Overview:
A member of the RNA family "Aggregatibacter sRNA 54", 120 nucleotides long. The literature on the family includes a 2017 paper in DNA Res by Oogai et al., "Small RNA repertoires and their intraspecies variation in Aggregatibacter actinomycetemcomitans". The match comes from Rfam's covariance-model search (40 bits). About the family: Validated by RT-PCR, expression up-regulated during growth.

RNA sequence: GCGUAAAAUUGCGCGCGCUUUCGCGAAAAAAAAGUGACACAUAACAAAUAAAAAUUAUUUUUUGUUUGUUUCAGUCACUUUUUUUGCGCGCCUUUCACUUUUUUUUGGGCGCGCUUUUUU
Numbered sequence: 001g002c003g004u005a006a007a008a009u010u011g012c013g014c015g016c017g018c019u020u021u022c023g024c025g026a027a028a029a030a031a032a033a034g035u036g037a038c039a040c041a042u043a044a045c046a047a048a049u050a051a052a053a054a055u056u057a058u059u060u061u062u063u064g065u066u067u068g069u070u071u072c073a074g075u076c077a078c079u080u081u082u083u084u085u086g087c088g089c090g091c092c093u094u095u096c097a098c099u100u101u102u103u104u105u106u107g108g109g110c111g112c113g114c115u116u117u118u119u120u
Stems, first nucleotide, its partner, number of pairs: 001014005029084003033079006044069005052063003086114007
Dot-bracket structure: (((((....)))))..............(((.((((((.....(((((...(((......))).)))))....))))))..))).(((((((...............)))))))......